[Rfam]
RNA sequence: GGAUGAAUAAAAGCGCCAGAACUUGAGCUAGCGCGGGGCGAAUGAUGAAUUGAUGACAUGAAUAUGUUAUCACAUGAAUUCUGAAUUCAACGGCAGACCAAGUUGACGAGGUAGAGGUGUUCGAAUGUUCGGCGGGGACCUCUCGGUGAUGCACCAGAGCCGUGAACCGAAAACGGAAAAUGAAUGGGCGACUGUUCACACAACGAUUCGGUGGGUGCUAG
Numbered sequence: 001g002g003a004u005g006a007a008u009a010a011a012a013g014c015g016c017c018a019g020a021a022c023u024u025g026a027g028c029u030a031g032c033g034c035g036g037g038g039c040g041a042a043u044g045a046u047g048a049a050u051u052g053a054u055g056a057c058a059u060g061a062a063u064a065u066g067u068u069a070u071c072a073c074a075u076g077a078a079u080u081c082u083g084a085a086u087u088c089a090a091c092g093g094c095a096g097a098c099c100a101a102g103u104u105g106a107c108g109a110g111g112u113a114g115a116g117g118u119g120u121u122c123g124a125a126u127g128u129u130c131g132g133c134g135g136g137g138a139c140c141u142c143u144c145g146g147u148g149a150u151g152c153a154c155c156a157g158a159g160c161c162g163u164g165a166a167c168c169g170a171a172a173a174c175g176g177a178a179a180a181u182g183a184a185u186g187g188g189c190g191a192c193u194g195u196u197c198a199c200a201c202a203a204c205g206a207u208u209c210g211g212u213g214g215g216u217g218c219u220a221g
Stems, first nucleotide, its partner, number of pairs: 020104006029095001113143005121132004144162004148155001167211005181198007
RNA: glmS glucosamine-6-phosphate activated ribozyme aptamer
Organism: Paenibacillus sp. IHBB 10380